Rfam assigns this 103-nucleotide RNA from Hevea brasiliensis to the family "Small nucleolar RNA R30/Z108". The match comes from Rfam's covariance-model search (75 bits). The family's RNA type in Rfam is C/D-box small nucleolar RNA. Clan: SNORD100 clan. About the family: snoR30 is a C/D box small nucleolar RNA which acts as a methylation guide for 18S ribosomal RNA in plants. Rfam links the family to the GO terms nucleolus and RNA processing.
Nucleotides: 103
Base pairs, nucleotide, nucleotide: 006103007102008101009100
Number, partner (000 for none) and nucleotide at each position: 001000g002000g003000a004000u005000g006103u007102u008101g009100c010000u011000a012000u013000g014000a015000g016000g017000a018000u019000u020000c021000a022000c023000a024000g025000c026000u027000c028000c029000c030000u031000c032000u033000u034000c035000u036000g037000a038000a039000u040000a041000u042000a043000u044000c045000a046000c047000u048000u049000g050000a051000a052000g053000a054000u055000a056000u057000u058000a059000g060000c061000u062000g063000g064000c065000a066000g067000a068000a069000u070000c071000g072000a073000a074000c075000c076000c077000a078000u079000g080000a081000c082000u083000u084000u085000u086000u087000a088000u089000g090000c091000c092000a093000c094000u095000g096000c097000u098000g099000a100009g101008u102007a103006a